The record is an 83-nucleotide RNA sequence from Streptomyces sp. B93, which matches "Streptomyces RNA 6106" in Rfam. It is annotated as a small RNA. About the family: Identified by deep sequencing of transcriptome at the end of exponential growth phase. It scores 72 bits against the family's covariance model.
RNA sequence: ACGCCGCUCGUUCGGCGUCCGCGGCCUGCACGGGCCAGCUGGGCGGGGGUGGUGCCGUGUCGGCGCAGCACCACCCCCGCGAG
Numbered sequence: 001a002c003g004c005c006g007c008u009c010g011u012u013c014g015g016c017g018u019c020c021g022c023g024g025c026c027u028g029c030a031c032g033g034g035c036c037a038g039c040u041g042g043g044c045g046g047g048g049g050u051g052g053u054g055c056c057g058u059g060u061c062g063g064c065g066c067a068g069c070a071c072c073a074c075c076c077c078c079g080c081g082a083g
Stems, first nucleotide, its partner, number of pairs: 001018006019041001021039002024036001025034003043080013057066003